Description
This 134-nucleotide sequence from Kribbella solani belongs to the Rfam family "FMN riboswitch aptamer (RFN element)". It scores 92 bits against the family's covariance model.
RNA sequence: ACACGUGCUCUGGGGUCGGUGAAAUUCCGAGCCGGCGGUGACAGUCCGCGACCCGUGACUUCGUCAGAAGAAGCGGUUGACCUGGUGGAACUCCAGGACCGACGGUAAAAGUCCGGAUGGGAAGACGCACGUGG
Numbered sequence: 001a002c003a004c005g006u007g008c009u010c011u012g013g014g015g016u017c018g019g020u021g022a023a024a025u026u027c028c029g030a031g032c033c034g035g036c037g038g039u040g041a042c043a044g045u046c047c048g049c050g051a052c053c054c055g056u057g058a059c060u061u062c063g064u065c066a067g068a069a070g071a072a073g074c075g076g077u078u079g080a081c082c083u084g085g086u087g088g089a090a091c092u093c094c095a096g097g098a099c100c101g102a103c104g105g106u107a108a109a110a111g112u113c114c115g116g117a118u119g120g121g122a123a124g125a126c127g128c129a130c131g132u133g134g
Stems, first nucleotide, its partner, number of pairs: 003132006009125002017029003031112002033101002035049004044099002053076004081097005103115003